Shown here is a 381-nucleotide RNA from Armillaria luteobubalina, a member of the family "RNase MRP".
NCBI's taxonomy places the organism under Eukaryota, Dikarya, Agaricomycetes, Physalacriaceae, Armillaria.
Pairs were carried over by alignment from the consensus structure, which is taken from published work.
The family's RNA type in Rfam is ribozyme.
[Rfam]
RNA sequence: UUGCCGUCCGAAGAAUCGUCGUCGCAGCUUCCGUACAGAGAGCCCUGGCUUUCAUAUUCCGCUGUGGGGAAAGUCCCCGGAGAUGCAGAGUAUGUCCUCGUUCAACUAACGGAAAGCGACCGUCUCUAAGCACGAUGGUACUGGACGAGGACGGCGAGAAUGGCUUUGCUCGGCUUUCUGGCUUGUGGCUCCCUCUCGACCGCUCUGUUGUCUCUCUGAUGGCUGGCUAUUCGGUGAAGGUGGUCAUGCGCGAAGAUAUGAGCGUGUGUAUCGCUCGGUAGCUUGCUGAAGGUGCAGACACUUUGUUGCUCAUAGACACAGUUAUACGAUUGUAGCCCUUCUUGAGGUCUUCAACACAAUGGGGCUCACUCUCGUUCGGCA
Numbered sequence: 001u002u003g004c005c006g007u008c009c010g011a012a013g014a015a016u017c018g019u020c021g022u023c024g025c026a027g028c029u030u031c032c033g034u035a036c037a038g039a040g041a042g043c044c045c046u047g048g049c050u051u052u053c054a055u056a057u058u059c060c061g062c063u064g065u066g067g068g069g070a071a072a073g074u075c076c077c078c079g080g081a082g083a084u085g086c087a088g089a090g091u092a093u094g095u096c097c098u099c100g101u102u103c104a105a106c107u108a109a110c111g112g113a114a115a116g117c118g119a120c121c122g123u124c125u126c127u128a129a130g131c132a133c134g135a136u137g138g139u140a141c142u143g144g145a146c147g148a149g150g151a152c153g154g155c156g157a158g159a160a161u162g163g164c165u166u167u168g169c170u171c172g173g174c175u176u177u178c179u180g181g182c183u184u185g186u187g188g189c190u191c192c193c194u195c196u197c198g199a200c201c202g203c204u205c206u207g208u209u210g211u212c213u214c215u216c217u218g219a220u221g222g223c224u225g226g227c228u229a230u231u232c233g234g235u236g237a238a239g240g241u242g243g244u245c246a247u248g249c250g251c252g253a254a255g256a257u258a259u260g261a262g263c264g265u266g267u268g269u270a271u272c273g274c275u276c277g278g279u280a281g282c283u284u285g286c287u288g289a290a291g292g293u294g295c296a297g298a299c300a301c302u303u304u305g306u307u308g309c310u311c312a313u314a315g316a317c318a319c320a321g322u323u324a325u326a327c328g329a330u331u332g333u334a335g336c337c338c339u340u341c342u343u344g345a346g347g348u349c350u351u352c353a354a355c356a357c358a359a360u361g362g363g364g365c366u367c368a369c370u371c372u373c374g375u376u377c378g379g380c381a
Stems, first nucleotide, its partner, number of pairs: 002381005009374003014331006022067007038053006072366002075364004085095003230290006239283003250274004260267001334350002337347002